[Rfam]
RNA sequence: CGUUCCGAGGGGCGCUGCGACCGUUGGGUGGACCCGUCCACUACAGCCCGUGUUCCUGCACGGACUUCCCAAACGGCCAGGCUCGGACGGCUUUCACGCAACAACGGCGCCCGGCGAAC
Numbered sequence: 001c002g003u004u005c006c007g008a009g010g011g012g013c014g015c016u017g018c019g020a021c022c023g024u025u026g027g028g029u030g031g032a033c034c035c036g037u038c039c040a041c042u043a044c045a046g047c048c049c050g051u052g053u054u055c056c057u058g059c060a061c062g063g064a065c066u067u068c069c070c071a072a073a074c075g076g077c078c079a080g081g082c083u084c085g086g087a088c089g090g091c092u093u094u095c096a097c098g099c100a101a102c103a104a105c106g107g108c109g110c111c112c113g114g115c116g117a118a119c
Stems, first nucleotide, its partner, number of pairs: 004087005021076005
Annotation:
This 119-nucleotide sequence from Stenotrophomonas terrae belongs to the Rfam family "SAH (S-adenosyl-L-homocysteine) riboswitch aptamer". Lineage of the source: Bacteria > Pseudomonadati > Gammaproteobacteria > Lysobacterales > Stenotrophomonas. The family's consensus secondary structure is taken from published work.